[Rfam]
RNA sequence: UCGGCGGGCCGUGACUGGCGCGUUGAAGAUGGAUGACCAUCGGGGAGCGGUCCCACCCACUCGGGGUGACCGCCGUGCGCCUGGGCCUCAUCA
Numbered sequence: 001u002c003g004g005c006g007g008g009c010c011g012u013g014a015c016u017g018g019c020g021c022g023u024u025g026a027a028g029a030u031g032g033a034u035g036a037c038c039a040u041c042g043g044g045g046a047g048c049g050g051u052c053c054c055a056c057c058c059a060c061u062c063g064g065g066g067u068g069a070c071c072g073c074c075g076u077g078c079g080c081c082u083g084g085g086c087c088u089c090a091u092c093a
Stems, first nucleotide, its partner, number of pairs: 003056001006053007015044002017081005029040004072086003
Shown here is a 93-nucleotide RNA sequence from Couchioplanes caeruleus, a member of the family "ZMP/ZTP riboswitch aptamer (pfl RNA motif)". It scores 50 bits against the family's covariance model.